Glycine riboswitch aptamer: a 104-nucleotide sequence from Lysobacter sp. TY2-98. Gene Ontology term of the family: glycine biosynthetic process.
[Rfam]
RNA sequence: UGCACACACUCUGGAGAGACCGGUUCGAUCCGGCGCCGAAGGGGCAAGAAGCGCAUCCUCCCCCGCGCUUCCAAACUCUCAGGCAGAAGGACAGAGGGGCGAGC
Numbered sequence: 001u002g003c004a005c006a007c008a009c010u011c012u013g014g015a016g017a018g019a020c021c022g023g024u025u026c027g028a029u030c031c032g033g034c035g036c037c038g039a040a041g042g043g044g045c046a047a048g049a050a051g052c053g054c055a056u057c058c059u060c061c062c063c064c065g066c067g068c069u070u071c072c073a074a075a076c077u078c079u080c081a082g083g084c085a086g087a088a089g090g091a092c093a094g095a096g097g098g099g100c101g102a103g104c
Base pairs, nucleotide, nucleotide: 007098009096010095011094012093013092020033021032022031023030035084036083037082038080039079042078043077044076048071049070050069051068052067053066054065